[Rfam]
RNA sequence: AACCAUACUAUGAAUGAAUGGAUUUGCCCAUGAUAUGAUGUGGUUGUUCCACUUAGGACAAGGAUGUGACAUCCUAUAAUUACCAGCCAUCGUACGAAAUUAAUAGGAUGCCAUGUCAUCAUCCUAAGCGGAACAACCACGUCAUCUCACAGGUGAAUCCAUUCAUUGAUAAUAUGAUU
Numbered sequence: 001a002a003c004c005a006u007a008c009u010a011u012g013a014a015u016g017a018a019u020g021g022a023u024u025u026g027c028c029c030a031u032g033a034u035a036u037g038a039u040g041u042g043g044u045u046g047u048u049c050c051a052c053u054u055a056g057g058a059c060a061a062g063g064a065u066g067u068g069a070c071a072u073c074c075u076a077u078a079a080u081u082a083c084c085a086g087c088c089a090u091c092g093u094a095c096g097a098a099a100u101u102a103a104u105a106g107g108a109u110g111c112c113a114u115g116u117c118a119u120c121a122u123c124c125u126a127a128g129c130g131g132a133a134c135a136a137c138c139a140c141g142u143c144a145u146c147u148c149a150c151a152g153g154u155g156a157a158u159c160c161a162u163u164c165a166u167u168g169a170u171a172a173u174a175u176g177a178u179u
Base pairs, nucleotide, nucleotide: 001179002178004176005175006174007173009171010170011169013167014166015165017163018162019161021159022158023157024156025155026154027153028152031149032148033147035145036144037143038142039141041139042138043137044136045135046134047133048132052128054126055125057123058122063117064116065115070110071109072108073107074106075105076104080103081102082101089100090099
RNA: MIR807 microRNA precursor family
Organism: Oryza glumipatula